RNA sequence: AGGAGUGUGAGGAGCGAACAGAACUGAAAAAACUCUUGGGGUCGAAACACGGCAAGACUCCCAAGAGUUUUUUCUAUUU
Numbered sequence: 001a002g003g004a005g006u007g008u009g010a011g012g013a014g015c016g017a018a019c020a021g022a023a024c025u026g027a028a029a030a031a032a033c034u035c036u037u038g039g040g041g042u043c044g045a046a047a048c049a050c051g052g053c054a055a056g057a058c059u060c061c062c063a064a065g066a067g068u069u070u071u072u073u074c075u076a077u078u079u
Stems, first nucleotide, its partner, number of pairs: 026074005033067002038062003041058003

A member of the RNA family "Cyano-1 RNA" from Aliterella atlantica, 79 nucleotides long. A search with the family's covariance model found it, with a score of 56 bits. It is annotated as a small RNA.